[Rfam]
RNA sequence: AGCUUAUAGAGAAAGGCAGAGGGAAUAGACCCAAUGAAGCCUUAGCAACCUGUGUAUUCAAGGUGCUAAAUUCUACCCACUUAGGGGGAAGAUAAGUG
Numbered sequence: 001a002g003c004u005u006a007u008a009g010a011g012a013a014a015g016g017c018a019g020a021g022g023g024a025a026u027a028g029a030c031c032c033a034a035u036g037a038a039g040c041c042u043u044a045g046c047a048a049c050c051u052g053u054g055u056a057u058u059c060a061a062g063g064u065g066c067u068a069a070a071u072u073c074u075a076c077c078c079a080c081u082u083a084g085g086g087g088g089a090a091g092a093u094a095a096g097u098g
Stems, first nucleotide, its partner, number of pairs: 002097006013043005021032003026075004044067004049063002051060002071090001076087003
RNA: SAM riboswitch aptamer (S box leader)